Description
Shown here is a 159-nucleotide sequence from Clostridium sp. MD294, a member of the family "glmS glucosamine-6-phosphate activated ribozyme aptamer". NCBI's taxonomy places the organism under Bacteria, Bacillati, Eubacteriales, Clostridiaceae, Clostridium. The family's RNA type in Rfam is riboswitch. A search with the family's covariance model found it, with a score of 83 bits. This entry contains a glucosamine-6-phosphate activated ribozyme that is found in the mRNA for GlmS. GlmS is an enzyme that uses fructose-6-phosphate and glutamine to generate glucosamine-6-phosphate.
[Rfam]
RNA sequence: GAAAGAAUAUAAGCGCCAGAACUCAUGUAGGGGUAGUUGACGAGGAAGAAGCGUAUCGAAAAUAUUCGGCGGAUACUUCUCGCCCAUUUGUACAGGGACGCAGGUUUUCUACAAAAAUAAAAGGGAAACUUUUUAUACAAAAAGAAAGCAACGUACAAA
Numbered sequence: 001g002a003a004a005g006a007a008u009a010u011a012a013g014c015g016c017c018a019g020a021a022c023u024c025a026u027g028u029a030g031g032g033g034u035a036g037u038u039g040a041c042g043a044g045g046a047a048g049a050a051g052c053g054u055a056u057c058g059a060a061a062a063u064a065u066u067c068g069g070c071g072g073a074u075a076c077u078u079c080u081c082g083c084c085c086a087u088u089u090g091u092a093c094a095g096g097g098a099c100g101c102a103g104g105u106u107u108u109c110u111a112c113a114a115a116a117a118u119a120a121a122a123g124g125g126a127a128a129c130u131u132u133u134u135a136u137a138c139a140a141a142a143a144g145a146a147a148g149c150a151a152c153g154u155a156c157a158a159a
Base pairs, nucleotide, nucleotide: 020038021037022036023035047080048079049078050077051076056069057068058067059066081100082099084097085096104149105148106147107146108145109144110143118135119134120133121132122131123130124129
Dot-bracket structure: ...................((((...........))))........(((((....((((......))))......)))))((.((..........)).))...(((((((.......(((((((....))))))).......)))))))..........